Background: This 97-nucleotide sequence from Facklamia miroungae belongs to the Rfam family "THF (Tetrahydrofolate) riboswitch aptamer". A search with the family's covariance model found it, with a score of 78 bits. About the family: Tetrahydrofolate (THF) riboswitch was first reported for Ames et al. as an RNA motif in 5' untranslated (5'-UTR)regions of folate transport and biosynthesis genes in Firmicutes genomes. The family's consensus secondary structure is taken from published work. Taxonomically the source falls in Facklamia (Bacteria, Bacillota, Lactobacillales, Aerococcaceae).
RNA sequence: GACAGAGUAAAAGAUAGAACGUUAAGUGUUGUUGGAUGGGAUGUGGCCAGCAAACGAAAAGAAUUAUUCUUGCGAUACUAUCUUUGCAUUCGCUGCA
Number, nucleotide and partner (000 for none) at each position: 001g000002a000003c095004a094005g093006a000007g000008u000009a000010a085011a084012a083013g082014a081015u080016a079017g078018a000019a076020c074021g073022u072023u000024a000025a000026g055027u054028g000029u053030u052031g051032u050033u049034g048035g047036a000037u000038g000039g091040g090041a089042u088043g087044u000045g000046g000047c035048c034049a033050g032051c031052a030053a029054a027055c026056g000057a000058a000059a071060a070061g069062a068063a000064u000065u000066a000067u000068u062069c061070u060071u059072g022073c021074g020075a000076u019077a000078c017079u016080a015081u014082c013083u012084u011085u010086g000087c043088a042089u041090u040091c039092g000093c005094u004095g003096c000097a000